[Rfam]
RNA sequence: UUAACGCAAAUUUGUAUUGAGUUGGAACGUUUGUCUACGUUUGCCGCCAGGGGCGCUGUUCCGACUGCAUACAAAUUCGAGUUA
Numbered sequence: 001u002u003a004a005c006g007c008a009a010a011u012u013u014g015u016a017u018u019g020a021g022u023u024g025g026a027a028c029g030u031u032u033g034u035c036u037a038c039g040u041u042u043g044c045c046g047c048c049a050g051g052g053g054c055g056c057u058g059u060u061c062c063g064a065c066u067g068c069a070u071a072c073a074a075a076u077u078c079g080a081g082u083u084a
Base pairs, nucleotide, nucleotide: 009077010076011075012074013073014072015071016070020066021065022064023063024062025061026060027059028058029057034052035051036050039047040046
Shown here is an 84-nucleotide sequence from Bombyx mori, a member of the family "mir-2807 microRNA precursor family". On this family, see Cai et al., Funct Integr Genomics 2010: "Novel microRNAs in silkworm (Bombyx mori)". Lineage of the source: Eukaryota > Metazoa > Arthropoda > Bombycidae > Bombyx. Rfam 15.1 lists 5,120 matches to the family in 8 species. Gene Ontology terms of the family: RISC complex and miRNA-mediated post-transcriptional gene silencing.